[Rfam]
RNA sequence: CGGAGUCCCGCAAUGGCACUGCAUGAAUUCACGGUUGUGCUUCGAGCCGUGCAUCCAUCGGUUCCAUACCGGGAUCGUCGCCG
Numbered sequence: 001c002g003g004a005g006u007c008c009c010g011c012a013a014u015g016g017c018a019c020u021g022c023a024u025g026a027a028u029u030c031a032c033g034g035u036u037g038u039g040c041u042u043c044g045a046g047c048c049g050u051g052c053a054u055c056c057a058u059c060g061g062u063u064c065c066a067u068a069c070c071g072g073g074a075u076c077g078u079c080g081c082c083g
Stems, first nucleotide, its partner, number of pairs: 006074005013067004018062004025055002028053001030051001032049003036044002
Dot-bracket structure: .....(((((..((((.((((...((.(.(.(((.((.....))..))).).)))...)))).))))..))))).........
Rfam assigns this 83-nucleotide RNA from Strongylus vulgaris to the family "mir-228 microRNA precursor family".
The family is grouped with related families in Rfam's "mir-182 clan".
The base pairs follow the family's consensus structure, which was predicted with RNAalifold.
On this family, see Lim et al., Genes Dev 2003: "The microRNAs of Caenorhabditis elegans".